This 129-nucleotide RNA sequence from Cyprinodon variegatus belongs to the Rfam family "U4atac minor spliceosomal RNA". U4atac is an essential component of the minor U12-type spliceosome complex which is required for removal of the rarer class of eukaryotic introns (AT-AC, U12-type). NCBI's taxonomy places the organism under Eukaryota, Teleostomi, Ctenosquamata, Ovalentaria, Cyprinodon.
RNA sequence: ACCUUCCUUGUCUCGGGGUGGUUCGGGAAUCUCAAUGAACGUAUAGUGAGAGUUUCCCUGCUAACACCGAAUCAACACAUUCGCAUCACCUGAACGAUUCAGUUCGGGAACGGUGCAAUUUUUGGAACA
Numbered sequence: 001a002c003c004u005u006c007c008u009u010g011u012c013u014c015g016g017g018g019u020g021g022u023u024c025g026g027g028a029a030u031c032u033c034a035a036u037g038a039a040c041g042u043a044u045a046g047u048g049a050g051a052g053u054u055u056c057c058c059u060g061c062u063a064a065c066a067c068c069g070a071a072u073c074a075a076c077a078c079a080u081u082c083g084c085a086u087c088a089c090c091u092g093a094a095c096g097a098u099u100c101a102g103u104u105c106g107g108g109a110a111c112g113g114u115g116c117a118a119u120u121u122u123u124g125g126a127a128c129a
Stems, first nucleotide, its partner, number of pairs: 006018004021061002026056004031052003039047002083116005090107006

Pairs were carried over by alignment from the consensus structure, which is taken from published work. A search with the family's covariance model found it, with a score of 91 bits.